[Rfam]
RNA sequence: AGUAAACUUUAGGAGUAGCUAGUUAUAUCUAGUUUGAGAAAUAUCCUUAGAACCUGAUUUUGGUUAACACCAACGUAGGAAAAAGUUAUUCUUCAAAA
Numbered sequence: 001a002g003u004a005a006a007c008u009u010u011a012g013g014a015g016u017a018g019c020u021a022g023u024u025a026u027a028u029c030u031a032g033u034u035u036g037a038g039a040a041a042u043a044u045c046c047u048u049a050g051a052a053c054c055u056g057a058u059u060u061u062g063g064u065u066a067a068c069a070c071c072a073a074c075g076u077a078g079g080a081a082a083a084a085g086u087u088a089u090u091c092u093u094c095a096a097a098a
Base pairs, nucleotide, nucleotide: 006086007085008084009083010082011047012046013045014044016041017034018033019032020031021030053079054078055077056076060073061072062071063070
This 98-nucleotide RNA sequence from Polaribacter sp. WD7 belongs to the Rfam family "TPP riboswitch aptamer (THI element)". NCBI's taxonomy places the organism under Bacteria, Flavobacteriia, Flavobacteriales, Flavobacteriaceae, Polaribacter. A search with the family's covariance model found it, with a score of 63 bits.